RNA sequence: AUAAUGCUUCAGGGCGGGGCGAAAUUCCCCACCGGCGGUAAAGCCCGCGAGCCGUAAGGCAUGAACUGGUGAGAUUCCAGUGCCGACAGUAAAGUCUGGAUGGAAGAAGUUGAAU
Dot-bracket structure: .....(((((......(((.......))).[[((((((....[[))))....(.....).....(((((.......)))))]])).(((....]]))).......))))).....
Numbered sequence: 001a002u003a004a005u006g007c008u009u010c011a012g013g014g015c016g017g018g019g020c021g022a023a024a025u026u027c028c029c030c031a032c033c034g035g036c037g038g039u040a041a042a043g044c045c046c047g048c049g050a051g052c053c054g055u056a057a058g059g060c061a062u063g064a065a066c067u068g069g070u071g072a073g074a075u076u077c078c079a080g081u082g083c084c085g086a087c088a089g090u091a092a093a094g095u096c097u098g099g100a101u102g103g104a105a106g107a108a109g110u111u112g113a114a115u
Stems, first nucleotide, its partner, number of pairs: 006110005017029003031095002033085002035048004043083002053059001065081005087098003

The record is a 115-nucleotide RNA from Allocoprococcus comes, which matches "FMN riboswitch aptamer (RFN element)" in Rfam.
Rfam's curators write: The RFN element is a highly conserved domain that is found frequently in the 5'-untranslated regions of prokaryotic mRNAs that encode for flavin mononucleotide (FMN) biosynthesis and transport proteins.